[Rfam]
RNA sequence: CUCUUAUCCAGAGAGGUGGAGGGACCGGCCCGAUGAAACCUCGGCAACCCGGCAUGUUGGUGGCAGCGUCGCCACAUCCAGCGCCAGGGUGCCAAGUCCGGCAGACGAGUUCUGGAAGAUGAGAG
Numbered sequence: 001c002u003c004u005u006a007u008c009c010a011g012a013g014a015g016g017u018g019g020a021g022g023g024a025c026c027g028g029c030c031c032g033a034u035g036a037a038a039c040c041u042c043g044g045c046a047a048c049c050c051g052g053c054a055u056g057u058u059g060g061u062g063g064c065a066g067c068g069u070c071g072c073c074a075c076a077u078c079c080a081g082c083g084c085c086a087g088g089g090u091g092c093c094a095a096g097u098c099c100g101g102c103a104g105a106c107g108a109g110u111u112c113u114g115g116a117a118g119a120u121g122a123g124a125g
Base pairs, nucleotide, nucleotide: 001125002124003123004122005121006120007119008118013042014041015040016039017038021031022030023029025101026100027099028098043093044092045091046090048089049088051085052084053083097117102114103113104112105111
SAM riboswitch aptamer (S box leader): a 125-nucleotide RNA sequence from Litorilinea aerophila. A search with the family's covariance model found it, with a score of 84 bits. A reference for the family is Grundy and Henkin (1998), "The S box regulon: a new global transcription termination control system for methionine and cysteine biosynthesis genes in gram-positive bacteria", Mol Microbiol. The base pairs follow the family's consensus structure, which is taken from published work.